[Rfam]
RNA sequence: GGCUAAACUAAGCUUUACAGGGUCCAGUGUUUAAAAAGCCCCGCAGCUUGCUCGGGGCUUUUUGCUAUGUGGCCUGCGCCAGUCGCCAUCAAGACUGGCCAAUAACACUGGGCGUUUACGCCCUUUUUUU
Numbered sequence: 001g002g003c004u005a006a007a008c009u010a011a012g013c014u015u016u017a018c019a020g021g022g023u024c025c026a027g028u029g030u031u032u033a034a035a036a037a038g039c040c041c042c043g044c045a046g047c048u049u050g051c052u053c054g055g056g057g058c059u060u061u062u063u064g065c066u067a068u069g070u071g072g073c074c075u076g077c078g079c080c081a082g083u084c085g086c087c088a089u090c091a092a093g094a095c096u097g098g099c100c101a102a103u104a105a106c107a108c109u110g111g112g113c114g115u116u117u118a119c120g121c122c123c124u125u126u127u128u129u130u
Base pairs, nucleotide, nucleotide: 035061036060037059038058039057040056041055042054043053110123111122112121113120
Gammaprotebacteria rimP leader: a 130-nucleotide RNA sequence from Idiomarina xiamenensis. The source organism's lineage runs through Bacteria, Pseudomonadati, Gammaproteobacteria, Idiomarina and Idiomarina xiamenensis. Rfam classes the family as a cis-regulatory leader. For this family Rfam cites "Premature terminator analysis sheds light on a hidden world of bacterial transcriptional attenuation" (Naville and Gautheret, Genome Biol, 2010). A search with the family's covariance model found it, with a score of 68 bits.